[Rfam]
About this RNA:
The family of this 91-nucleotide RNA from Guopingia tenuis is "TPP riboswitch aptamer (THI element)". Its family is annotated with thiamine pyrophosphate binding in the Gene Ontology.

RNA sequence: AUCAACCGCUGGGGGUGCCAUUUGGCUGAGAAUACACCCUUAGAACCUGAAAACGGUAAUUCUUUCGUAGGGAAAGCGGUGACAAGAAGCG
Numbered sequence: 001a002u003c004a005a006c007c008g009c010u011g012g013g014g015g016u017g018c019c020a021u022u023u024g025g026c027u028g029a030g031a032a033u034a035c036a037c038c039c040u041u042a043g044a045a046c047c048u049g050a051a052a053a054c055g056g057u058a059a060u061u062c063u064u065u066c067g068u069a070g071g072g073a074a075a076g077c078g079g080u081g082a083c084a085a086g087a088a089g090c091g
Base pairs, nucleotide, nucleotide: 006079007078008077009076010075011040012039013038014037016034017026018025019024046071047070048069049068052065053064055062
The base pairs follow the family's consensus structure, which is taken from published work.